The family of this 71-nucleotide RNA from Leptotrombidium deliense is "mir-252 microRNA precursor family". The literature on the family includes a 2006 paper in Cell by Ruby et al., "Large-scale sequencing reveals 21U-RNAs and additional microRNAs and endogenous siRNAs in C. elegans". The family's consensus secondary structure was predicted with RNAalifold. The family has 44 seed sequences and 422 matches in Rfam 15.1. It scores 54 bits against the family's covariance model.
RNA sequence: CCAGUCUUCUAAGUAGUAGUGCCGCAGGUAAUGGUUUUGAAUUACCUGCACACGACUGCUUCAGAGACUGA
Numbered sequence: 001c002c003a004g005u006c007u008u009c010u011a012a013g014u015a016g017u018a019g020u021g022c023c024g025c026a027g028g029u030a031a032u033g034g035u036u037u038u039g040a041a042u043u044a045c046c047u048g049c050a051c052a053c054g055a056c057u058g059c060u061u062c063a064g065a066g067a068c069u070g071a
Stems, first nucleotide, its partner, number of pairs: 002070006011061007019053001024049007